[Rfam]
RNA sequence: GCAUGGAUGAAUUCUGCCCUAGCUUUCCUUAUAGCUGGUGCAGUCAGACACCAUGCCAGAGCAAAUUCCUUUUUCCCACUUUGCCUGGUGUGCUUUUUGAUGGGAUGAGCAUGCCCUUGGGAGGGGAACACAUCA
Numbered sequence: 001g002c003a004u005g006g007a008u009g010a011a012u013u014c015u016g017c018c019c020u021a022g023c024u025u026u027c028c029u030u031a032u033a034g035c036u037g038g039u040g041c042a043g044u045c046a047g048a049c050a051c052c053a054u055g056c057c058a059g060a061g062c063a064a065a066u067u068c069c070u071u072u073u074u075c076c077c078a079c080u081u082u083g084c085c086u087g088g089u090g091u092g093c094u095u096u097u098u099g100a101u102g103g104g105a106u107g108a109g110c111a112u113g114c115c116c117u118u119g120g121g122a123g124g125g126g127a128a129c130a131c132a133u134c135a
Base pairs, nucleotide, nucleotide: 001056002055003054004053005052006051014043015042016041017040019038070127071126072124073123074122075121076120077119078118087115088114089113090112091111092110093109094108095107
Annotation
A member of the RNA family "Small nucleolar RNA SNORA15" from Melospiza melodia, 135 nucleotides long. The base pairs follow the family's consensus structure, which was predicted with RNAfold. Rfam links the family to the GO terms RNA processing and nucleolus. A search with the family's covariance model found it, with a score of 65 bits. For this family Rfam cites "RNomics: an experimental approach that identifies 201 candidates for novel, small, non-messenger RNAs in mouse" (Huttenhofer et al., EMBO J, 2001). Taxonomically the source falls in Melospiza (Eukaryota, Euteleostomi, Archelosauria, Passeriformes).